[Rfam]
RNA sequence: UCAGUUCUCUUUGCCUUUUGGCUUAGAUCUAAAUGCAGUGUGUUCGUUGCUGUCAGUUUAAUCGCUUGGCACGUCACUACGGUGUACUUCGUGAUCAAAUGAUUUUUGGGCCUGGGCGGCGGCGGUCGGGCUUUUUGCUCGGGUUUGUCGCUGCUACUGUGUCGCUCGUAUUGCACUGUUUCGGGCUGACGCGAACGCUUU
Number, nucleotide and partner (000 for none) at each position: 001u000002c000003a000004g000005u000006u000007c000008u027009c026010u025011u000012u000013g022014c021015c020016u000017u000018u000019u000020g015021g014022c013023u000024u000025a010026g009027a008028u000029c000030u000031a000032a000033a000034u000035g000036c000037a000038g000039u000040g000041u000042g000043u000044u000045c000046g000047u000048u000049g000050c000051u071052g070053u069054c068055a067056g065057u000058u000059u000060a000061a000062u000063c000064g000065c056066u000067u055068g054069g053070c052071a051072c000073g087074u086075c084076a083077c082078u000079a000080c000081g000082g077083u076084g075085u000086a074087c073088u000089u000090c000091g000092u000093g000094a000095u000096c000097a000098a000099a000100u000101g000102a000103u000104u000105u000106u000107u000108g000109g000110g000111c000112c000113u000114g000115g000116g154117c153118g152119g151120c150121g149122g148123c147124g000125g000126u000127c141128g140129g139130g138131c137132u000133u000134u000135u000136u000137g131138c130139u129140c128141g127142g000143g000144u000145u000146u000147g123148u122149c121150g120151c119152u118153g117154c116155u000156a000157c000158u193159g192160u191161g190162u189163c000164g186165c185166u184167c183168g182169u000170a000171u000172u000173g000174c000175a000176c000177u000178g000179u000180u000181u000182c168183g167184g166185g165186c164187u000188g000189a162190c161191g160192c159193g158194a000195a000196c000197g000198c000199u000200u000201u000
RNA: U2 spliceosomal RNA
Organism: Aplosporella prunicola